[Rfam]
RNA: Alphaproteobacteria transfer-messenger RNA
RNA sequence: CCUCUUCCCAGCAGCGUAGCGAUGCCUAUAUUUGCGGUGCCGGUUCGCCGGCUAUGACAAUAAACGGCCGUCGCAAUAAACCAUUCGGACCCGGGGGCGGUACCCGGCGCCUCCACCCAAGCCCGGCUCUGCCGGGUUUCGGCGGGGGCGAAAUAGGAUCGACGAGGGCGUAAAGGGCGAGCUUUUGUUCGGUAUGGUUCCGCCGUCAUCGGGCCAAUGCAAUAGUUGCCAACGACAACUAUGCUCCGGUUGCUCAGGCUGCGUAACGCAGUUUGAAAGACCGACUUAAAGCCCUAACGGGUUAAGCUCCGUUAGGCGGGGUUCGGAGGCACCUGGCAACAGAAGCCUCCACU
Numbered sequence: 001c002c003u004c005u006u007c008c009c010a011g012c013a014g015c016g017u018a019g020c021g022a023u024g025c026c027u028a029u030a031u032u033u034g035c036g037g038u039g040c041c042g043g044u045u046c047g048c049c050g051g052c053u054a055u056g057a058c059a060a061u062a063a064a065c066g067g068c069c070g071u072c073g074c075a076a077u078a079a080a081c082c083a084u085u086c087g088g089a090c091c092c093g094g095g096g097g098c099g100g101u102a103c104c105c106g107g108c109g110c111c112u113c114c115a116c117c118c119a120a121g122c123c124c125g126g127c128u129c130u131g132c133c134g135g136g137u138u139u140c141g142g143c144g145g146g147g148g149c150g151a152a153a154u155a156g157g158a159u160c161g162a163c164g165a166g167g168g169c170g171u172a173a174a175g176g177g178c179g180a181g182c183u184u185u186u187g188u189u190c191g192g193u194a195u196g197g198u199u200c201c202g203c204c205g206u207c208a209u210c211g212g213g214c215c216a217a218u219g220c221a222a223u224a225g226u227u228g229c230c231a232a233c234g235a236c237a238a239c240u241a242u243g244c245u246c247c248g249g250u251u252g253c254u255c256a257g258g259c260u261g262c263g264u265a266a267c268g269c270a271g272u273u274u275g276a277a278a279g280a281c282c283g284a285c286u287u288a289a290a291g292c293c294c295u296a297a298c299g300g301g302u303u304a305a306g307c308u309c310c311g312u313u314a315g316g317c318g319g320g321g322u323u324c325g326g327a328g329g330c331a332c333c334u335g336g337c338a339a340c341a342g343a344a345g346c347c348u349c350c351a352c353u
Base pairs, nucleotide, nucleotide: 039052040051041050042049043048056189057188058187059186060185066182069179070178071177072176081168082167085165086164087163091107092106093105094104095103108150109149110148111147112146113145114144190205191204192203193202195216196215197214199213200212201211319334320333321332322331325350326349327348328347329346330345